[Rfam]
RNA sequence: GCAACCUGAAGCUCGCGCACGCCAGCCCCGUGGUGUUCCGCUCGCUGCUGGGCAUUAGCUGGAUGUGGUUCUUCGGCGCGGUGUUUCUCUCGCAAUUUCCGAGCUUCGCCAAGGAGGUGCUG
Numbered sequence: 001g002c003a004a005c006c007u008g009a010a011g012c013u014c015g016c017g018c019a020c021g022c023c024a025g026c027c028c029c030g031u032g033g034u035g036u037u038c039c040g041c042u043c044g045c046u047g048c049u050g051g052g053c054a055u056u057a058g059c060u061g062g063a064u065g066u067g068g069u070u071c072u073u074c075g076g077c078g079c080g081g082u083g084u085u086u087c088u089c090u091c092g093c094a095a096u097u098u099c100c101g102a103g104c105u106u107c108g109c110c111a112a113g114g115a116g117g118u119g120c121u122g
Stems, first nucleotide, its partner, number of pairs: 010049003014044002017041002021037001023035002026032001051121005059113002062110001063105001067099002072094001074092003078088001080087002

A member of the RNA family "Burkholderia RNA 11" from Paracidovorax valerianellae, 122 nucleotides long. Pairs were carried over by alignment from the consensus structure, which was predicted with RNAfold. The family's RNA type in Rfam is small RNA. About the family: Co-purified with Hfq, expression confirmed by Northern blot. A search with the family's covariance model found it, with a score of 97 bits.